A member of the RNA family "Glycine riboswitch aptamer" from Candidatus Gallionella acididurans, 108 nucleotides long. The organism belongs to Gallionella, within Bacteria.

RNA sequence: UUCAGACCAAUGGGAGAGCGUGUCAGCCAGCACCCUUGCAAUAUGGCUGCGACACCGCCGAAGGCGCAACACCCGUAACCGCUCAGGCUCAAGAACCGUUGGCACAGG
Numbered sequence: 001u002u003c004a005g006a007c008c009a010a011u012g013g014g015a016g017a018g019c020g021u022g023u024c025a026g027c028c029a030g031c032a033c034c035c036u037u038g039c040a041a042u043a044u045g046g047c048u049g050c051g052a053c054a055c056c057g058c059c060g061a062a063g064g065c066g067c068a069a070c071a072c073c074c075g076u077a078a079c080c081g082c083u084c085a086g087g088c089u090c091a092a093g094a095a096c097c098g099u100u101g102g103c104a105c106a107g108g
Stems, first nucleotide, its partner, number of pairs: 007102007020055004057088003060084002064082003070075001